[Rfam]
RNA: FMN riboswitch aptamer (RFN element)
RNA sequence: UUUAGCCUUUGGGGCAAGGUGAAAAAGAGUGCAUCUUUUAAUUCCUUACCGGCGGUAAAGCCCGCGAACCUUUGUGGUUGAUCUGGUGAAAUUCCAGGGCCGACAGUAUAGUCUGGAUGGGAAAAGGCUACA
Numbered sequence: 001u002u003u004a005g006c007c008u009u010u011g012g013g014g015c016a017a018g019g020u021g022a023a024a025a026a027g028a029g030u031g032c033a034u035c036u037u038u039u040a041a042u043u044c045c046u047u048a049c050c051g052g053c054g055g056u057a058a059a060g061c062c063c064g065c066g067a068a069c070c071u072u073u074g075u076g077g078u079u080g081a082u083c084u085g086g087u088g089a090a091a092u093u094c095c096a097g098g099g100c101c102g103a104c105a106g107u108a109u110a111g112u113c114u115g116g117a118u119g120g121g122a123a124a125a126g127g128c129u130a131c132a
Stems, first nucleotide, its partner, number of pairs: 003130008017046003048112002050102002052065004060100002068078003082098005104115003